Small nucleolar RNA R16: an 89-nucleotide RNA sequence from Asparagus officinalis.
The source organism's lineage runs through Eukaryota, Streptophytina, Magnoliopsida, Asparagales and Asparagus.
It scores 73 bits against the family's covariance model.
Its family is annotated with RNA processing and nucleolus in the Gene Ontology.
[Rfam]
RNA sequence: AUGGGCAAAUGAUGCGCAAGUGAAAUCUUAUCCUACACACUGAAAUUUAAUAUGUGGAUUAUAAUCUCUACUUAUUGUCUGAUGCCUAU
Numbered sequence: 001a002u003g004g005g006c007a008a009a010u011g012a013u014g015c016g017c018a019a020g021u022g023a024a025a026u027c028u029u030a031u032c033c034u035a036c037a038c039a040c041u042g043a044a045a046u047u048u049a050a051u052a053u054g055u056g057g058a059u060u061a062u063a064a065u066c067u068c069u070a071c072u073u074a075u076u077g078u079c080u081g082a083u084g085c086c087u088a089u
Base pairs, nucleotide, nucleotide: 003087004086005085006084007083